Description:
This 263-nucleotide sequence from Talaromyces islandicus belongs to the Rfam family "Fungal signal recognition particle RNA". Lineage of the source: Eukaryota > Pezizomycotina > Eurotiomycetes > Eurotiales > Talaromyces sect. Islandici. Gene Ontology terms of the family: signal recognition particle, plasma membrane targeting, SRP-dependent cotranslational protein targeting to membrane, signal sequence recognition and signal recognition particle, endoplasmic reticulum targeting.

RNA sequence: UAUCUGUGACGGAUAACCCAGUGGAAGGGCAGCUGUCGGCGGGAAACCUUGCUCGGCUCGCGCCAACGGGUGAGCGUGUCUGGUUCGAAUCGUGGAGCGGCAGCCGCAACUCGUUGGAUAACCACGAUUGUUGCGCUGUCUUAAGCAAUGGAGAUGACCCCUCAGGGAAGCAAUUCUGCAAGGAGCUCUCCACUCUGUGAUGGCGGCGCCAGGUCGCACCUCCUCGUGCAAGGCAACUCGCUAUUGAGUUGUUCAACUGCAUU
Numbered sequence: 001u002a003u004c005u006g007u008g009a010c011g012g013a014u015a016a017c018c019c020a021g022u023g024g025a026a027g028g029g030c031a032g033c034u035g036u037c038g039g040c041g042g043g044a045a046a047c048c049u050u051g052c053u054c055g056g057c058u059c060g061c062g063c064c065a066a067c068g069g070g071u072g073a074g075c076g077u078g079u080c081u082g083g084u085u086c087g088a089a090u091c092g093u094g095g096a097g098c099g100g101c102a103g104c105c106g107c108a109a110c111u112c113g114u115u116g117g118a119u120a121a122c123c124a125c126g127a128u129u130g131u132u133g134c135g136c137u138g139u140c141u142u143a144a145g146c147a148a149u150g151g152a153g154a155u156g157a158c159c160c161c162u163c164a165g166g167g168a169a170g171c172a173a174u175u176c177u178g179c180a181a182g183g184a185g186c187u188c189u190c191c192a193c194u195c196u197g198u199g200a201u202g203g204c205g206g207c208g209c210c211a212g213g214u215c216g217c218a219c220c221u222c223c224u225c226g227u228g229c230a231a232g233g234c235a236a237c238u239c240g241c242u243a244u245u246g247a248g249u250u251g252u253u254c255a256a257c258u259g260c261a262u263u
Stems, first nucleotide, its partner, number of pairs: 001015004021260004027254007039241005047233006055064003067226003072222003076219004080212005085206003089201009099140001101138003105135004109129001111127004116123002141145001149192006160183003167176003